[Rfam]
RNA sequence: UCUUUGGAGUGCUGUACAAACGCCAGUAGCCUGUCUUUUUUGGCGGCGAGAGCGAGUACGAUGAACAAGGAA
Numbered sequence: 001u002c003u004u005u006g007g008a009g010u011g012c013u014g015u016a017c018a019a020a021c022g023c024c025a026g027u028a029g030c031c032u033g034u035c036u037u038u039u040u041u042g043g044c045g046g047c048g049a050g051a052g053c054g055a056g057u058a059c060g061a062u063g064a065a066c067a068a069g070g071a072a
Stems, first nucleotide, its partner, number of pairs: 001070004009059005021054003029047003034043002
RNA: RAGATH-18 RNA